[Rfam]
RNA sequence: AAAGGCGGACUGGCUGAUUAAACAUUCCCGUCACGAUGAAGGCUCUGCCACACUGCAACCUUCGAACGUUGUCUAAAGUUGUUCCAUUGGCUGGAUAACGUUACCGCUGGU
Numbered sequence: 001a002a003a004g005g006c007g008g009a010c011u012g013g014c015u016g017a018u019u020a021a022a023c024a025u026u027c028c029c030g031u032c033a034c035g036a037u038g039a040a041g042g043c044u045c046u047g048c049c050a051c052a053c054u055g056c057a058a059c060c061u062u063c064g065a066a067c068g069u070u071g072u073c074u075a076a077a078g079u080u081g082u083u084c085c086a087u088u089g090g091c092u093g094g095a096u097a098a099c100g101u102u103a104c105c106g107c108u109g110g111u
Stems, first nucleotide, its partner, number of pairs: 004032005011024002038063005065102010077092004

Background
The record is a 111-nucleotide RNA sequence from Rhodobacteraceae bacterium SB2, which matches "Methylobacterium-1 RNA" in Rfam. Lineage of the source: Bacteria > Pseudomonadota > Alphaproteobacteria > Rhodobacterales > Paracoccaceae. It scores 62 bits against the family's covariance model.